[Rfam]
RNA sequence: GGCCACCUUCGGGGGGCUUUACCAUAGCAAGGCAUUGCCUUGCGAUAGCAAACGGAAGACAGAAA
Numbered sequence: 001g002g003c004c005a006c007c008u009u010c011g012g013g014g015g016g017c018u019u020u021a022c023c024a025u026a027g028c029a030a031g032g033c034a035u036u037g038c039c040u041u042g043c044g045a046u047a048g049c050a051a052a053c054g055g056a057a058g059a060c061a062g063a064a065a
Stems, first nucleotide, its partner, number of pairs: 001018004006014003027043007
RNA: L2-Alphaproteobacteria ribosomal protein leader